[Rfam]
RNA sequence: UUCUUAUCAAGAGCGGUGGAGGGACUGGCCCUAUGAAACCCGGCAACCUUGAUUCAUUCAAAAGGUGCUAAAUCCAGCAGAAGUAUUUCUGAGAGAUAAGAA
Dot-bracket structure: ((((((((....(.(((...(((.[[[[)))......))))((((.((((((.....))))..))))))...(]]]](((((....)))))..)))))))))